Rfam assigns this 132-nucleotide RNA sequence from Paenibacillus sp. UNC496MF to the family "Guanidine-I riboswitch aptamer". Rfam 15.1 lists 1,509 matches to the family in 1,281 species.

RNA sequence: GAAAAAGCUGUCUAGGGUUCCGUUGGCGUUCGCUUUCUUGACGUCAAGCCUGGUCCGAGAGACGGUGUGCGGCACGCGGAUGCUUCGGCUUCUAGCGGCUGCAUAACACGGAAGGAUAAAAGCCUGGGAGAU
Number, nucleotide and partner (000 for none) at each position: 001g000002a000003a000004a000005a000006a000007g066008c065009u064010g063011u062012c061013u000014a000015g056016g055017g000018u000019u000020c053021c052022g050023u047024u046025g045026g044027c043028g042029u041030u040031c000032g000033c000034u000035u000036u000037c000038u000039u000040g030041a029042c028043g027044u026045c025046a024047a023048g000049c000050c022051u000052g021053g020054u000055c016056c015057g000058a000059g000060a000061g012062a011063c010064g009065g008066u007067g104068u103069g102070c101071g100072g099073c098074a000075c000076g000077c000078g000079g000080a000081u000082g000083c000084u000085u000086c000087g000088g000089c000090u000091u000092c000093u000094a000095g000096c000097g000098g073099c072100u071101g070102c069103a068104u067105a000106a000107c127108a000109c130110g000111g000112a000113a125114g124115g123116a000117u000118a000119a000120a000121a000122g000123c115124c114125u113126g000127g107128g000129a000130g109131a000132u000